The record is an 88-nucleotide RNA sequence from Chiloscyllium punctatum, which matches "mir-204 microRNA precursor family" in Rfam. Rfam 15.1 lists 1,730 matches to the family in 644 species. The family's consensus secondary structure was predicted with RNAalifold. A search with the family's covariance model found it, with a score of 89 bits. Rfam links the family to the GO terms miRNA-mediated post-transcriptional gene silencing and RISC complex. On this family, see Chen et al., Genes Dev 2005: "The developmental miRNA profiles of zebrafish as determined by small RNA cloning".
RNA sequence: AUGUGACUUGUGGACUUCCCUUUGUCAUCCUAUGCCUGGUAGUAUGAUGGAGGCUGGGACGGUAAGGGGAUGUUCAGCUGUCAAUUAC
Dot-bracket structure: ................((((((.((..(((((.((((.............)))))))))..)).))))))..................